The family of this 100-nucleotide sequence from Aquibium carbonis is "Pyrrolysine insertion sequence mttB". On this family, see Theil Have et al., BMC Bioinformatics 2013: "Effects of using coding potential, sequence conservation and mRNA structure conservation for predicting pyrroly-sine containing genes".

[Rfam]
RNA sequence: AUGGCCGACUCCAAGCUGCCCGACAUCCAGGCGGGCUACGAAAAGGGCAUCACCAACGUCAUGGCGGGCCUCUCCGGCCUCAACCUGAUCUAUGAGUCGG
Numbered sequence: 001a002u003g004g005c006c007g008a009c010u011c012c013a014a015g016c017u018g019c020c021c022g023a024c025a026u027c028c029a030g031g032c033g034g035g036c037u038a039c040g041a042a043a044a045g046g047g048c049a050u051c052a053c054c055a056a057c058g059u060c061a062u063g064g065c066g067g068g069c070c071u072c073u074c075c076g077g078c079c080u081c082a083a084c085c086u087g088a089u090c091u092a093u094g095a096g097u098c099g100g
Base pairs, nucleotide, nucleotide: 003012033062035060077098079096080095
By type it is a cis-regulatory element. Rfam links the family to the GO term pyrrolysine incorporation. The match comes from Rfam's covariance-model search (68 bits).